The family of this 101-nucleotide RNA sequence from Hymenochirus boettgeri is "Small nucleolar RNA SNORD16". For this family Rfam cites "A novel small nucleolar RNA (U16) is encoded inside a ribosomal protein intron and originates by processing of the pre-mRNA" (Fragapane et al., EMBO J, 1993). Clan: SNORD16 clan. It is annotated as a C/D-box small nucleolar RNA. A search with the family's covariance model found it, with a score of 103 bits. Its family is annotated with RNA processing and nucleolus in the Gene Ontology.
RNA sequence: UGCUGUGAUGUUGUAAUUUGCGUCCUACACCACAUUAUGCGACAGUUGCCUGCUGUCAUUAUGCUGGUGUGGAUGGAUGAUGAAAACCUAAACUCUGAGCA
Numbered sequence: 001u002g003c004u005g006u007g008a009u010g011u012u013g014u015a016a017u018u019u020g021c022g023u024c025c026u027a028c029a030c031c032a033c034a035u036u037a038u039g040c041g042a043c044a045g046u047u048g049c050c051u052g053c054u055g056u057c058a059u060u061a062u063g064c065u066g067g068u069g070u071g072g073a074u075g076g077a078u079g080a081u082g083a084a085a086a087c088c089u090a091a092a093c094u095c096u097g098a099g100c101a
Stems, first nucleotide, its partner, number of pairs: 001101003021082004030072005039064002041057005